Bacterial RNase P class A: a 405-nucleotide sequence from Candidatus Gallionella acididurans.
The base pairs follow the family's consensus structure, which is taken from published work.

RNA sequence: GAAGCUGGCCAGACAGUCGCCGCGCACGCAAGUGCGGGGAGGAAAGUCCGGGCUCCAUAGAGCAGAAUGCCGGUUAACGACCGGACACCGUGAGGUGAUGAACAGUGCCACAGAAAAUAAACUGCCCAAGUACCGCAAGCCCCCGCAAGGGGGGCGCCGAAUGACACUCGCCGCAAGGCGGCGGUCAUAACGCAGGUAACGGCGAGGGUGAAACGGCGGGGUAAGAGCCCACCGCGGACGUGGUAACACGGACGGCACGGUAAACUCCAUUCGGAGCAAGACCAAAUAAGCAGGCCAUGACGUUGCUCGCGUCGCUUGCGGGUAGGUUGCUUGAGCGUCAGGUAACGAAACGCCUAGAGGAAUGACUGUCCACGACAGAACCCGGCUUACCGGCUGGCUUCACCU
Numbered sequence: 001g002a003a004g005c006u007g008g009c010c011a012g013a014c015a016g017u018c019g020c021c022g023c024g025c026a027c028g029c030a031a032g033u034g035c036g037g038g039g040a041g042g043a044a045a046g047u048c049c050g051g052g053c054u055c056c057a058u059a060g061a062g063c064a065g066a067a068u069g070c071c072g073g074u075u076a077a078c079g080a081c082c083g084g085a086c087a088c089c090g091u092g093a094g095g096u097g098a099u100g101a102a103c104a105g106u107g108c109c110a111c112a113g114a115a116a117a118u119a120a121a122c123u124g125c126c127c128a129a130g131u132a133c134c135g136c137a138a139g140c141c142c143c144c145g146c147a148a149g150g151g152g153g154g155c156g157c158c159g160a161a162u163g164a165c166a167c168u169c170g171c172c173g174c175a176a177g178g179c180g181g182c183g184g185u186c187a188u189a190a191c192g193c194a195g196g197u198a199a200c201g202g203c204g205a206g207g208g209u210g211a212a213a214c215g216g217c218g219g220g221g222u223a224a225g226a227g228c229c230c231a232c233c234g235c236g237g238a239c240g241u242g243g244u245a246a247c248a249c250g251g252a253c254g255g256c257a258c259g260g261u262a263a264a265c266u267c268c269a270u271u272c273g274g275a276g277c278a279a280g281a282c283c284a285a286a287u288a289a290g291c292a293g294g295c296c297a298u299g300a301c302g303u304u305g306c307u308c309g310c311g312u313c314g315c316u317u318g319c320g321g322g323u324a325g326g327u328u329g330c331u332u333g334a335g336c337g338u339c340a341g342g343u344a345a346c347g348a349a350a351c352g353c354c355u356a357g358a359g360g361a362a363u364g365a366c367u368g369u370c371c372a373c374g375a376c377a378g379a380a381c382c383c384g385g386c387u388u389a390c391c392g393g394c395u396g397g398c399u400u401c402a403c404c405u
Stems, first nucleotide, its partner, number of pairs: 001401010012370007020039002023036005044388003048385005053276004060308004065272005070084005085099001086097004100267002105265002107261003122207002124203003131198004215233002218230003234256001235254002239250004280328004290319006299313005335353004341346001